[Rfam]
RNA sequence: AAUAGUUUUAUGCCACAUUAGUAUUCUUAUCUUGAAUUUCAGUAUUUUAAUUUGGAUUUGAUUUUUUUCAUGAUAAAAUCCUGAAAUUCAGGAUAAAAAUACUGAUGUGGCAUAAAACUAUU
Number, nucleotide and partner (000 for none) at each position: 001a122002a121003u120004a119005g118006u117007u116008u115009u114010a113011u112012g111013c110014c109015a108016c107017a106018u105019u104020a103021g102022u101023a100024u099025u098026c000027u096028u000029a094030u093031c092032u091033u090034g089035a088036a087037u086038u085039u084040c000041a082042g081043u000044a000045u078046u077047u076048u075049a000050a000051u000052u000053u000054g000055g000056a000057u000058u000059u000060g000061a000062u000063u000064u000065u000066u000067u000068u000069c000070a000071u000072g000073a000074u000075a048076a047077a046078a045079u000080c000081c042082u041083g000084a039085a038086a037087u036088u035089c034090a033091g032092g031093a030094u029095a000096a027097a000098a025099a024100u023101a022102c021103u020104g019105a018106u017107g016108u015109g014110g013111c012112a011113u010114a009115a008116a007117a006118c005119u004120a003121u002122u001

This 122-nucleotide RNA from Gossypium arboreum belongs to the Rfam family "MIR7504 microRNA precursor family".
The organism belongs to Gossypium, within Eukaryota.
The match comes from Rfam's covariance-model search (87 bits).
The base pairs follow the family's consensus structure, which was predicted with RNAalifold.